[Rfam]
RNA: c-di-AMP riboswitch aptamer (ydaO/yuaA leader)
RNA sequence: CCUGGACCGCCGCCGAACCACAGCGGCCCGUGCAGCACUGCGGGCCAGUGGACCGGGGACCCACCGCAGCACUGGGGUGAAGCUCCGCGCGACCCGUACGGGCCGUGUGGUGCCGGGCGUCUUCCCGCCCGAACCCGUCAGCUAACUCGGUAGGCGGCGAGUGGAAGAAGG
Numbered sequence: 001c002c003u004g005g006a007c008c009g010c011c012g013c014c015g016a017a018c019c020a021c022a023g024c025g026g027c028c029c030g031u032g033c034a035g036c037a038c039u040g041c042g043g044g045c046c047a048g049u050g051g052a053c054c055g056g057g058g059a060c061c062c063a064c065c066g067c068a069g070c071a072c073u074g075g076g077g078u079g080a081a082g083c084u085c086c087g088c089g090c091g092a093c094c095c096g097u098a099c100g101g102g103c104c105g106u107g108u109g110g111u112g113c114c115g116g117g118c119g120u121c122u123u124c125c126c127g128c129c130c131g132a133a134c135c136c137g138u139c140a141g142c143u144a145a146c147u148c149g150g151u152a153g154g155c156g157g158c159g160a161g162u163g164g165a166a167g168a169a170g171g
Base pairs, nucleotide, nucleotide: 011156012155013154014153018051019050020049052151053150054149055148056147057146062074063073075136076135077134083112085110086109087108088107089106090105091104115130116129117128118127